[Rfam]
Rfam assigns this 113-nucleotide RNA sequence to the family "LOOT RNA". By type it is a small RNA. The base pairs follow the family's consensus structure, which is taken from published work. It is one of the family's seed sequences.
RNA sequence: AGCCUAAACCGAUUUUUCGGCAUGGUUAAAAGACCCAUGAAAGAUACUGAACCCCGCGUUCAGCGACUCUUUCAUGGGCUAUAUCAGGAAACUGGUAUAGGGUCGUAAGACCU
Numbered sequence: 001a002g003c004c005u006a007a008a009c010c011g012a013u014u015u016u017u018c019g020g021c022a023u024g025g026u027u028a029a030a031a032g033a034c035c036c037a038u039g040a041a042a043g044a045u046a047c048u049g050a051a052c053c054c055c056g057c058g059u060u061c062a063g064c065g066a067c068u069c070u071u072u073c074a075u076g077g078g079c080u081a082u083a084u085c086a087g088g089a090a091a092c093u094g095g096u097a098u099a100g101g102g103u104c105g106u107a108a109g110a111c112c113u
Stems, first nucleotide, its partner, number of pairs: 001027004009020004034078011045065001047063006080099008100113005